RNA sequence: GUGCGGCCUCCGCCGAGUCCGGUACGCCCCCGCGGCACCCGGAGCCGGGGACCCACCCGACCUUGGGGUGAAUCGGCCAACGGCCCUGCGGGGCCGGGGCCGUAGGGCAUGCCUUCCGGAACCACCCGCCCGAACCCGACAGCUAACUCGGUAGGCGGAGUACGGAAGGAGA
Numbered sequence: 001g002u003g004c005g006g007c008c009u010c011c012g013c014c015g016a017g018u019c020c021g022g023u024a025c026g027c028c029c030c031c032g033c034g035g036c037a038c039c040c041g042g043a044g045c046c047g048g049g050g051a052c053c054c055a056c057c058c059g060a061c062c063u064u065g066g067g068g069u070g071a072a073u074c075g076g077c078c079a080a081c082g083g084c085c086c087u088g089c090g091g092g093g094c095c096g097g098g099g100c101c102g103u104a105g106g107g108c109a110u111g112c113c114u115u116c117c118g119g120a121a122c123c124a125c126c127c128g129c130c131c132g133a134a135c136c137c138g139a140c141a142g143c144u145a146a147c148u149c150g151g152u153a154g155g156c157g158g159a160g161u162a163c164g165g166a167a168g169g170a171g172a
Stems, first nucleotide, its partner, number of pairs: 011157004018043005044152006054065002066137003074102004105131004